The family of this 61-nucleotide RNA sequence from Synechococcus sp. RS9916 is "Glutamine-II riboswitch aptamer". For this family Rfam cites "Structure and ligand binding of the glutamine-II riboswitch" (Huang et al., Nucleic Acids Res, 2019). It is one of the family's seed sequences.

RNA sequence: GCACGUUGGGCCCCAUUCCGUGGGCUGCAGAUCGAUCCACGCCAAGCAACGGGGACGUGGA
Numbered sequence: 001g002c003a004c005g006u007u008g009g010g011c012c013c014c015a016u017u018c019c020g021u022g023g024g025c026u027g028c029a030g031a032u033c034g035a036u037c038c039a040c041g042c043c044a045a046g047c048a049a050c051g052g053g054g055a056c057g058u059g060g061a
Base pairs, nucleotide, nucleotide: 004051005050006049007048008047010025011024012023013022036061037060038059039058040057041056042054043053